Notes
The family of this 134-nucleotide sequence from Micromonospora sp. HM5-17 is "SAM riboswitch aptamer (S box leader)". Lineage of the source: Bacteria > Bacillati > Actinomycetota > Actinomycetes > Micromonospora. The match comes from Rfam's covariance-model search (67 bits). The base pairs follow the family's consensus structure, which is taken from published work.
RNA sequence: ACCUCAUCCAGAGGGGCUGAGGGACACGGCCCGGUGACGCCCCGGCAACCACCCGCCGUCUCGACGGCGAGUAGCGGCGCGGCAGGUGCCAAUUCCGUCCCCGUCGCAUCGUGCGGCGUAGGGAAAGAUGAGAG
Numbered sequence: 001a002c003c004u005c006a007u008c009c010a011g012a013g014g015g016g017c018u019g020a021g022g023g024a025c026a027c028g029g030c031c032c033g034g035u036g037a038c039g040c041c042c043c044g045g046c047a048a049c050c051a052c053c054c055g056c057c058g059u060c061u062c063g064a065c066g067g068c069g070a071g072u073a074g075c076g077g078c079g080c081g082g083c084a085g086g087u088g089c090c091a092a093u094u095c096c097g098u099c100c101c102c103g104u105c106g107c108a109u110c111g112u113g114c115g116g117c118g119u120a121g122g123g124a125a126a127g128a129u130g131a132g133a134g
Stems, first nucleotide, its partner, number of pairs: 003132006013043005021032003026098004044090004049086002053082003094126001099123003103119002